Shown here is a 107-nucleotide RNA sequence from Molossus molossus, a member of the family "Small nucleolar RNA U6-53/MBII-28".
A reference for the family is Huttenhofer et al. (2001), "RNomics: an experimental approach that identifies 201 candidates for novel, small, non-messenger RNAs in mouse", EMBO J.

[Rfam]
RNA sequence: CCCCUGUGAUGAGUUUCAUGCUAAUACUGAGAUGCCAGGUAGGGGUUUUACCUUGCAUUGGGUGUUGUUGAAAUACAUUCCGCUUCUCUUAAAGCCACCUGAGGGGC
Numbered sequence: 001c002c003c004c005u006g007u008g009a010u011g012a013g014u015u016u017c018a019u020g021c022u023a024a025u026a027c028u029g030a031g032a033u034g035c036c037a038g039g040u041a042g043g044g045g046u047u048u049u050a051c052c053u054u055g056c057a058u059u060g061g062g063u064g065u066u067g068u069u070g071a072a073a074u075a076c077a078u079u080c081c082g083c084u085u086c087u088c089u090u091a092a093a094g095c096c097a098c099c100u101g102a103g104g105g106g107c
Stems, first nucleotide, its partner, number of pairs: 001106004040055005
Dot-bracket structure: ((((...................................(((((......)))))...............................................)))).